[Rfam]
RNA: Glycine riboswitch aptamer
Organism: Parvularcula marina
RNA sequence: GUCUCCUCCGCGGGAGACGCUGAUCGGGCCAUCCCGGUCAGGGCCGAAGGCGCAACCCCCUCGGAAACGCUCAGGCAAAAGGACCGCGGAUGGGAG
Number, nucleotide and partner (000 for none) at each position: 001g000002u000003c000004u000005c000006c000007u090008c089009c088010g087011c086012g085013g084014g000015a000016g000017a000018c000019g000020c041021u040022g039023a038024u037025c036026g035027g034028g000029c000030c000031a000032u000033c000034c027035c026036g025037g024038u023039c022040a021041g020042g000043g076044c075045c074046g072047a071048a000049g000050g070051c069052g068053c000054a000055a000056c064057c063058c000059c000060c000061u000062c000063g057064g056065a000066a000067a000068c052069g051070c050071u047072c046073a000074g045075g044076c043077a000078a000079a000080a000081g000082g000083a000084c013085c012086g011087c010088g009089g008090a007091u000092g000093g000094g000095a000096g000